This 97-nucleotide sequence from Leifsonia sp. Root227 belongs to the Rfam family "ZMP/ZTP riboswitch aptamer (pfl RNA motif)".
The literature on the family includes a 2015 paper in Chem Biol by Trausch et al., "Metal Ion-Mediated Nucleobase Recognition by the ZTP Riboswitch".

RNA sequence: UGCUUGCGUCGCGACUGGCGCUCAAAUGGUCACCAUUGGGGAGCGACGAAUGCCCUGGUAGGAACGGGCGGAUCGGCCGCGCGCCUGGGUCGAUACG
Numbered sequence: 001u002g003c004u005u006g007c008g009u010c011g012c013g014a015c016u017g018g019c020g021c022u023c024a025a026a027u028g029g030u031c032a033c034c035a036u037u038g039g040g041g042a043g044c045g046a047c048g049a050a051u052g053c054c055c056u057g058g059u060a061g062g063a064a065c066g067g068g069c070g071g072a073u074c075g076g077c078c079g080c081g082c083g084c085c086u087g088g089g090u091c092g093a094u095a096c097g
Stems, first nucleotide, its partner, number of pairs: 003052001005050001007048006015040002017085005026036004074092005